This 66-nucleotide RNA sequence from Acipenser ruthenus belongs to the Rfam family "Small nucleolar RNA SNORD42". The family's RNA type in Rfam is C/D-box small nucleolar RNA. The family's consensus secondary structure was predicted with PFOLD. For this family Rfam cites "Purified box C/D snoRNPs are able to reproduce site-specific 2'-O-methylation of target RNA in vitro" (Galardi et al., Mol Cell Biol, 2002). Rfam 15.1 lists 848 matches to the family in 572 species. A search with the family's covariance model found it, with a score of 55 bits. Rfam links the family to the GO terms RNA processing and nucleolus.
Nucleotides: 066
Stems, first nucleotide, its partner, number of pairs: 001066005
Number, partner (000 for none) and nucleotide at each position: 001066g002065u003064g004063c005062a006000a007000u008000u009000g010000a011000u012000g013000g014000a015000a016000a017000c018000u019000u020000u021000u022000a023000a024000u025000g026000u027000c028000u029000g030000a031000u032000u033000c034000a035000g036000u037000u038000u039000g040000a041000u042000g043000u044000u045000u046000u047000c048000a049000a050000a051000g052000g053000a054000a055000c056000c057000a058000c059000u060000g061000a062005u063004g064003c065002a066001c